[Rfam]
RNA sequence: GACCUUUUAGCUCAGUUGGUAGAGCAACUCCCUUUUAAGGAGUGGGCCCAUGGUUCGAAUCCAUGAAGGGUCA
Numbered sequence: 001g002a003c004c005u006u007u008u009a010g011c012u013c014a015g016u017u018g019g020u021a022g023a024g025c026a027a028c029u030c031c032c033u034u035u036u037a038a039g040g041a042g043u044g045g046g047c048c049c050a051u052g053g054u055u056c057g058a059a060u061c062c063a064u065g066a067a068g069g070g071u072c073a
Base pairs, nucleotide, nucleotide: 001072002071003070004069005068006067007066010025011024012023013022027043028042029041030040031039049065050064051063052062053061
Notes: This 73-nucleotide RNA from Sulfurovum sp. AR belongs to the Rfam family "tRNA". The base pairs follow the family's consensus structure, which is taken from published work. A search with the family's covariance model found it, with a score of 72 bits.